RNA sequence: GUCGGCUACGGUGAUAUUUAUCCGGUCACACCCUUAGGGAAGGUUAUCGGAAGCGUCUGCUGCAUUUGCGGAGUACUGGUCAUUGCCUUGCCUAUCCCCAUCGUCGUCAACAAU
Dot-bracket structure: ((.(...((((.(((....((...............((.(........(.(.........).)..........).))................))....))).))))...).))
Numbered sequence: 001g002u003c004g005g006c007u008a009c010g011g012u013g014a015u016a017u018u019u020a021u022c023c024g025g026u027c028a029c030a031c032c033c034u035u036a037g038g039g040a041a042g043g044u045u046a047u048c049g050g051a052a053g054c055g056u057c058u059g060c061u062g063c064a065u066u067u068g069c070g071g072a073g074u075a076c077u078g079g080u081c082a083u084u085g086c087c088u089u090g091c092c093u094a095u096c097c098c099c100a101u102c103g104u105c106g107u108c109a110a111c112a113a114u
Stems, first nucleotide, its partner, number of pairs: 001114002004111001008107004013102003020095002037077002040074001049063001051061001